Rfam assigns this 98-nucleotide sequence from Acetobacterium bakii to the family "SAM riboswitch aptamer (S box leader)". Gene Ontology term of the family: regulation of gene expression. The family's consensus secondary structure is taken from published work.
RNA sequence: UACCUAUCCAGAGUGGUGGAGGGACAGGCCCGAUGAAACCCGGCAACCAGCGAAAGCAUGGUGCCAAUACCUGCGAAUUUUUUUCGCAAUGAUGGGAU
Numbered sequence: 001u002a003c004c005u006a007u008c009c010a011g012a013g014u015g016g017u018g019g020a021g022g023g024a025c026a027g028g029c030c031c032g033a034u035g036a037a038a039c040c041c042g043g044c045a046a047c048c049a050g051c052g053a054a055a056g057c058a059u060g061g062u063g064c065c066a067a068u069a070c071c072u073g074c075g076a077a078u079u080u081u082u083u084u085c086g087c088a089a090u091g092a093u094g095g096g097a098u
Base pairs, nucleotide, nucleotide: 003096004095005094006093007092008091013041015040016039017038021031022030023029027071028070042065043064044063045062047061048060050057051056069090072088073087074086075085076084077083